[Rfam]
Overview
The family of this 102-nucleotide RNA sequence from Exaiptasia diaphana is "Small nucleolar RNA SNORD16". It is annotated as a C/D-box small nucleolar RNA. A search with the family's covariance model found it, with a score of 55 bits. A reference for the family is Fragapane et al. (1993), "A novel small nucleolar RNA (U16) is encoded inside a ribosomal protein intron and originates by processing of the pre-mRNA", EMBO J. Rfam links the family to the GO terms RNA processing and nucleolus. Lineage of the source: Eukaryota > Anthozoa > Hexacorallia > Aiptasiidae > Exaiptasia.
RNA sequence: GGAAGUGAUGAUGUAAUUUGCGUCAUAGGGUGUGGUCAGUGACGGUUGCCUGCCGUCGUAUACUACUACAUUUUUAUGAAGACACUAUAUACAUACUGAUCC
Numbered sequence: 001g002g003a004a005g006u007g008a009u010g011a012u013g014u015a016a017u018u019u020g021c022g023u024c025a026u027a028g029g030g031u032g033u034g035g036u037c038a039g040u041g042a043c044g045g046u047u048g049c050c051u052g053c054c055g056u057c058g059u060a061u062a063c064u065a066c067u068a069c070a071u072u073u074u075u076a077u078g079a080a081g082a083c084a085c086u087a088u089a090u091a092c093a094u095a096c097u098g099a100u101c102c
Base pairs, nucleotide, nucleotide: 001102002101003100021081023079024078030071031070032069033068034067039063040062041057042056043055044054045053